[Rfam]
RNA: FMN riboswitch aptamer (RFN element)
Organism: Paenibacillus sp. J45TS6
RNA sequence: AUUUUCCUUCGGGGCAGGGCGAAAUUCCCUACCGGCGGUGAUGACCUCCAUGGUACGUAAUUGUAAUAUGGAUCAGUCAAAGUCCGUGACCCGCUAAGCGUAUGCUUACGGUGGAUCUGGUGAAACUCCGGAACCGACAGUAUAGUCUGGAUGAGAGAAGGAAUAG
Numbered sequence: 001a002u003u004u005u006c007c008u009u010c011g012g013g014g015c016a017g018g019g020c021g022a023a024a025u026u027c028c029c030u031a032c033c034g035g036c037g038g039u040g041a042u043g044a045c046c047u048c049c050a051u052g053g054u055a056c057g058u059a060a061u062u063g064u065a066a067u068a069u070g071g072a073u074c075a076g077u078c079a080a081a082g083u084c085c086g087u088g089a090c091c092c093g094c095u096a097a098g099c100g101u102a103u104g105c106u107u108a109c110g111g112u113g114g115a116u117c118u119g120g121u122g123a124a125a126c127u128c129c130g131g132a133a134c135c136g137a138c139a140g141u142a143u144a145g146u147c148u149g150g151a152u153g154a155g156a157g158a159a160g161g162a163a164u165a166g
Stems, first nucleotide, its partner, number of pairs: 004163007017029003031146002033136002035087004091111002116132005138149003